[Rfam]
RNA sequence: AUUCCCUAUGAUGUUUGUCUAAGCCAUGCUAAUGCUGAUGUGCAUUGAUGAACUCAUUAAAUGUUAUACUGAGGGAAUC
Number, nucleotide and partner (000 for none) at each position: 001a078002u077003u076004c075005c074006c073007u072008a000009u000010g000011a000012u000013g000014u000015u000016u000017g000018u000019c000020u000021a000022a000023g000024c000025c000026a000027u000028g000029c000030u000031a000032a000033u000034g000035c000036u000037g000038a000039u000040g000041u000042g000043c000044a000045u000046u000047g000048a000049u000050g000051a000052a000053c000054u000055c000056a000057u000058u000059a000060a000061a000062u000063g000064u000065u000066a000067u000068a000069c000070u000071g000072a007073g006074g005075g004076a003077a002078u001079c000
RNA: Small nucleolar RNA snoR53Y
Organism: Phoenix dactylifera